[Rfam]
RNA sequence: UGAGCAUCGGUGAUGAGUACUCAAAUUCGUUAUCCUUGCACUUUGAUUGUCAGUGAAGAAACUCAUGGGGAAAUUUGUUCUCUGAGAUGCUC
Number, nucleotide and partner (000 for none) at each position: 001u000002g092003a091004g090005c089006a088007u087008c086009g000010g000011u000012g000013a000014u000015g000016a000017g000018u000019a000020c000021u000022c000023a000024a000025a000026u000027u000028c000029g000030u000031u000032a000033u000034c000035c000036u000037u000038g000039c000040a000041c000042u000043u000044u000045g000046a000047u000048u000049g000050u000051c000052a000053g000054u000055g000056a000057a000058g000059a000060a000061a000062c000063u000064c000065a000066u000067g000068g000069g000070g000071a000072a000073a000074u000075u000076u000077g000078u000079u000080c000081u000082c000083u000084g000085a000086g008087a007088u006089g005090c004091u003092c002
RNA: Small nucleolar RNA snoR26